[Rfam]
RNA sequence: AUGCACGGUGCUAACCCCAGGCUUGUCAGAAUACUAUCCUCUGAAGGAGCCCCAAUGCCUGUGCUACAUCUUCCAUGCCAUUCAGUGUUGCAGAUCAUGAUGCUUCUUGUGAUUGGUCUGUGUCAGAUUAAUGGAUACAUUC
Numbered sequence: 001a002u003g004c005a006c007g008g009u010g011c012u013a014a015c016c017c018c019a020g021g022c023u024u025g026u027c028a029g030a031a032u033a034c035u036a037u038c039c040u041c042u043g044a045a046g047g048a049g050c051c052c053c054a055a056u057g058c059c060u061g062u063g064c065u066a067c068a069u070c071u072u073c074c075a076u077g078c079c080a081u082u083c084a085g086u087g088u089u090g091c092a093g094a095u096c097a098u099g100a101u102g103c104u105u106c107u108u109g110u111g112a113u114u115g116g117u118c119u120g121u122g123u124c125a126g127a128u129u130a131a132u133g134g135a136u137a138c139a140u141u142c
Stems, first nucleotide, its partner, number of pairs: 003064006010058002020051005026044003078134005086125002089122006095112003